[Rfam]
RNA sequence: UUCCGACCACAACGGCUUCCUGACGUGGAUCGGCAAACCUAACGGAGCA
Numbered sequence: 001u002u003c004c005g006a007c008c009a010c011a012a013c014g015g016c017u018u019c020c021u022g023a024c025g026u027g028g029a030u031c032g033g034c035a036a037a038c039c040u041a042a043c044g045g046a047g048c049a
Stems, first nucleotide, its partner, number of pairs: 004032002007028004013022002015048003019045002

Shown here is a 49-nucleotide RNA sequence from Pseudooctadecabacter jejudonensis, a member of the family "SAM/SAH riboswitch aptamer". The match comes from Rfam's covariance-model search (50 bits). Gene Ontology terms of the family: S-adenosylmethionine metabolic process and regulation of gene expression. Pairs were carried over by alignment from the consensus structure, which is taken from published work. Taxonomically the source falls in Pseudooctadecabacter (Bacteria, Alphaproteobacteria, Rhodobacterales, Paracoccaceae).